[Rfam]
RNA sequence: UUGCCCAUUUAAGACGAUUUGUGUCCUAAAUGACCAACACAGGGGGGUAGAGGAAUUCUCUCAAAAACCUGGAGUAAAGGCUGAACAUUCCUUGCUUCGGAUCCUGUCGGGAGAAACAAAU
Number, nucleotide and partner (000 for none) at each position: 001u000002u049003g048004c047005c046006c045007a000008u043009u042010u041011a000012a000013g038014a000015c000016g035017a000018u033019u030020u000021g000022u000023g000024u000025c000026c000027u000028a000029a000030a019031u000032g000033a018034c000035c016036a000037a000038c013039a000040c000041a010042g009043g008044g000045g006046g005047g004048u003049a002050g000051a000052g000053g000054a000055a000056u115057u000058c113059u112060c111061u110062c109063a000064a000065a000066a000067a000068c000069c100070u099071g098072g097073a096074g095075u094076a000077a092078a000079g090080g000081c000082u087083g000084a000085a000086c000087a082088u000089u000090c079091c000092u077093u000094g075095c074096u073097u072098c071099g070100g069101a000102u000103c000104c000105u000106g000107u000108c000109g062110g061111g060112a059113g058114a000115a056116a000117c000118a000119a000120a000121u000

This 121-nucleotide sequence from Electrophorus electricus belongs to the Rfam family "Small nucleolar RNA SNORA26". Pairs were carried over by alignment from the consensus structure, which was predicted with RNAalifold. Its Rfam clan is "SNORA27 clan". Gene Ontology terms of the family: nucleolus and RNA processing. It scores 76 bits against the family's covariance model. The literature on the family includes a 2001 paper in EMBO J by Huttenhofer et al., "RNomics: an experimental approach that identifies 201 candidates for novel, small, non-messenger RNAs in mouse". Rfam describes the family as follows. The snoRNA HBI-6 belong to the H/ACA family of snoRNAs, guiding the pseudouridylation of position U4522 if the 28S rRNA. HBI-6 is the human orthologue of mouse MBI-6 snoRNA.